[Rfam]
The family of this 69-nucleotide RNA sequence is "tRNA". Pairs were carried over by alignment from the consensus structure, which is taken from published work.
RNA sequence: GUAGAUAUAGUUUAACUAAAACACUAGAUUGUGAAUCUAACCAUAGAGACUCACCACCUCUUAUUUACC
Numbered sequence: 001g002u003a004g005a006u007a008u009a010g011u012u013u014a015a016c017u018a019a020a021a022c023a024c025u026a027g028a029u030u031g032u033g034a035a036u037c038u039a040a041c042c043a044u045a046g047a048g049a050c051u052c053a054c055c056a057c058c059u060c061u062u063a064u065u066u067a068c069c
Base pairs, nucleotide, nucleotide: 001068002067003066004065005064006063007062010022011021012020013019025039026038027037028036045061046060047059048058
Dot-bracket structure: (((((((..((((.....))))..((((.......)))).....((((.........))))))))))).